Annotation: The record is a 136-nucleotide RNA from Picathartes gymnocephalus, which matches "Small nucleolar RNA SNORA15" in Rfam. ACA15 is a member of the H/ACA class of snoRNA that guide the sites of modification of uridines to pseudouridines. The match comes from Rfam's covariance-model search (72 bits). Gene Ontology terms of the family: RNA processing and nucleolus. A reference for the family is Huttenhofer et al. (2001), "RNomics: an experimental approach that identifies 201 candidates for novel, small, non-messenger RNAs in mouse", EMBO J.

RNA sequence: GCAUGGAUGAAUUCUGCACCAGCUUUCCUCAGUAGCUGAUGCAGUCAGACACCAUGCCAGAGCAAACUCCUUUUUCCACUGUGCCUGGUGUGCUUUUUGAUGGGAAUGGGCAUGCCCUUGGAAGGGGGAAACAAAA
Numbered sequence: 001g002c003a004u005g006g007a008u009g010a011a012u013u014c015u016g017c018a019c020c021a022g023c024u025u026u027c028c029u030c031a032g033u034a035g036c037u038g039a040u041g042c043a044g045u046c047a048g049a050c051a052c053c054a055u056g057c058c059a060g061a062g063c064a065a066a067c068u069c070c071u072u073u074u075u076c077c078a079c080u081g082u083g084c085c086u087g088g089u090g091u092g093c094u095u096u097u098u099g100a101u102g103g104g105a106a107u108g109g110g111c112a113u114g115c116c117c118u119u120g121g122a123a124g125g126g127g128g129a130a131a132c133a134a135a136a
Base pairs, nucleotide, nucleotide: 001057002056003055004054005053006052014044015043016042017041018040068129069128070127071125072124073123074122075121076120087116088115089114090113091112092111093110094109095108